[Rfam]
RNA sequence: GGUCAGGGAUGAGCGCUGGCAUGUAUUAUCUGAUCUGGAGUUGAUGUCUAGAAUUACUCUGAGACCCG
Dot-bracket structure: ((((..........................................................))))..

Rfam assigns this 68-nucleotide RNA sequence from Bubo bubo to the family "Small nucleolar RNA SNORD45". The match comes from Rfam's covariance-model search (51 bits). Lineage of the source: Eukaryota > Bilateria > Deuterostomia > Theropoda > Bubo. A reference for the family is Kiss-Laszlo et al. (1996), "Site-specific ribose methylation of preribosomal RNA: a novel function for small nucleolar RNAs", Cell. It is annotated as a C/D-box small nucleolar RNA. Rfam 15.1 lists 1,629 matches to the family in 521 species. Rfam links the family to the GO terms nucleolus and RNA processing.